This 67-nucleotide sequence from Boselaphus tragocamelus belongs to the Rfam family "tRNA". Rfam's curators write: Transfer RNA (tRNA) molecules are approximately 80 nucleotides in length. Their secondary structure includes four short double-helical elements and three loops (D, anti-codon, and T loops). Further hydrogen bonds mediate the characteristic L-shaped molecular structure. tRNAs have two regions of fundamental functional importance: the anti-codon, which is responsible for specific mRNA codon recognition, and the 3' end, to which the tRNAs corresponding amino acid is attached (by aminoacyl-tRNA synthetases). tRNAs cope with the degeneracy of the genetic code in two manners: having more than one tRNA (with a specific anti-codon) for a particular amino acid; and 'wobble' base-pairing, i.e. permitting non-standard base-pairing at the 3rd anti-codon position. The family's consensus secondary structure is taken from published work. The sequence is in the family's curated seed alignment.
RNA sequence: CAAGAUAUAGCUUAAACAAAGCAUCUAGUUUACACCUAGAAGAUUUCACAUACUAUGAAUGUCUUGA
Numbered sequence: 001c002a003a004g005a006u007a008u009a010g011c012u013u014a015a016a017c018a019a020a021g022c023a024u025c026u027a028g029u030u031u032a033c034a035c036c037u038a039g040a041a042g043a044u045u046u047c048a049c050a051u052a053c054u055a056u057g058a059a060u061g062u063c064u065u066g067a
Stems, first nucleotide, its partner, number of pairs: 001066007010022004024040005045059004